[Rfam]
RNA sequence: GGUUAUUGAGGAUAGUAAGGCAGCUAUCACGCCAGAGAUGGUCUUUCAAGAGAUGCAGGGUACGCCGUCCUGCCAACAACC
Numbered sequence: 001g002g003u004u005a006u007u008g009a010g011g012a013u014a015g016u017a018a019g020g021c022a023g024c025u026a027u028c029a030c031g032c033c034a035g036a037g038a039u040g041g042u043c044u045u046u047c048a049a050g051a052g053a054u055g056c057a058g059g060g061u062a063c064g065c066c067g068u069c070c071u072g073c074c075a076a077c078a079a080c081c
Stems, first nucleotide, its partner, number of pairs: 001081004006076003011028005019066003030050001031042004055073005

The record is an 81-nucleotide RNA sequence, which matches "skipping-rope RNA" in Rfam.
It is annotated as a small RNA.